Source information:
sRNA-Xcc1: an 87-nucleotide sequence from Aggregatibacter actinomycetemcomitans. By type it is a small RNA. A reference for the family is Chen et al. (2011), "sRNA-Xcc1, an integron-encoded transposon- and plasmid-transferred trans-acting sRNA, is under the positive control of the key virulence regulators HrpG and HrpX of Xanthomonas campestris pathovar campestris", RNA Biol.
[Rfam]
RNA sequence: GUCGGGAGGGCGACUAAUAUAAUACCCGAGAGGGGAAUACGUCCAGCCCUACCUAUUGCGGGUUUUUCAGCCUCCCGACGCCCAGUG
Numbered sequence: 001g002u003c004g005g006g007a008g009g010g011c012g013a014c015u016a017a018u019a020u021a022a023u024a025c026c027c028g029a030g031a032g033g034g035g036a037a038u039a040c041g042u043c044c045a046g047c048c049c050u051a052c053c054u055a056u057u058g059c060g061g062g063u064u065u066u067u068c069a070g071c072c073u074c075c076c077g078a079c080g081c082c083c084a085g086u087g
Stems, first nucleotide, its partner, number of pairs: 001079009012043003015039002025034003045064005

A search with the family's covariance model found it, with a score of 69 bits. Pairs were carried over by alignment from the consensus structure, which was predicted with RNAalifold. The organism belongs to Aggregatibacter actinomycetemcomitans, within Bacteria.